The family of this 49-nucleotide RNA sequence from Drymodes brunneopygia is "Guanidine-II riboswitch aptamer (mini-ykkC)". About the family: Simpler in structure and has fewer highly conserved nucleotide positions than the ykkC-yxkD leader. Despite this each of its two stem-loop structures directly bind free guanidine. Therefore, mini-ykkC RNA motif represents a distinct class of guanidine-sensing RNAs. Its crystal structure was also determined. A search with the family's covariance model found it, with a score of 33 bits. Gene Ontology term of the family: regulation of gene expression. The family's consensus secondary structure is taken from published work.

RNA sequence: GCCCAGGGACGGCCCUGGAGAUGGACAUCACUGCCCAGGGACGGCCCUG
Numbered sequence: 001g002c003c004c005a006g007g008g009a010c011g012g013c014c015c016u017g018g019a020g021a022u023g024g025a026c027a028u029c030a031c032u033g034c035c036c037a038g039g040g041a042c043g044g045c046c047c048u049g
Base pairs, nucleotide, nucleotide: 003018004017005016006015007014008013036049037048038047039046040045